[Rfam]
RNA sequence: AUAUACACUGAGUGGUCAGAUUAUUAUGAUUUCUGAACACAUAAUAAUCUGGCUGCUCAGUGUAUUU
Numbered sequence: 001a002u003a004u005a006c007a008c009u010g011a012g013u014g015g016u017c018a019g020a021u022u023a024u025u026a027u028g029a030u031u032u033c034u035g036a037a038c039a040c041a042u043a044a045u046a047a048u049c050u051g052g053c054u055g056c057u058c059a060g061u062g063u064a065u066u067u
Stems, first nucleotide, its partner, number of pairs: 004064014019049010

Source information:
The record is a 67-nucleotide RNA from Pipistrellus kuhlii, which matches "mir-9256 microRNA precursor family" in Rfam. The match comes from Rfam's covariance-model search (82 bits). The base pairs follow the family's consensus structure, which was predicted with RNAalifold.